Shown here is a 92-nucleotide RNA sequence from Rhizobium sp. BG4, a member of the family "Glycine riboswitch aptamer". The pairing is the family consensus, mapped onto this sequence. Rfam 15.1 lists 9,425 matches to the family in 5,228 species. NCBI's taxonomy places the organism under Bacteria, Pseudomonadati, Pseudomonadota, Rhizobiaceae, Rhizobium. Gene Ontology term of the family: glycine biosynthetic process.

[Rfam]
RNA sequence: GCGACCUUGUUGGGAGAAGCCGGUUCGCAAGUGCCGGUGCCGAAGGAGCAACCGCCCCGGAAACUCUCAGGCAAAAGGACCACAAGGGGCAG
Numbered sequence: 001g002c003g004a005c006c007u008u009g010u011u012g013g014g015a016g017a018a019g020c021c022g023g024u025u026c027g028c029a030a031g032u033g034c035c036g037g038u039g040c041c042g043a044a045g046g047a048g049c050a051a052c053c054g055c056c057c058c059g060g061a062a063a064c065u066c067u068c069a070g071g072c073a074a075a076a077g078g079a080c081c082a083c084a085a086g087g088g089g090c091a092g
Stems, first nucleotide, its partner, number of pairs: 005087005011082003020037004039072003042068002046066003052060002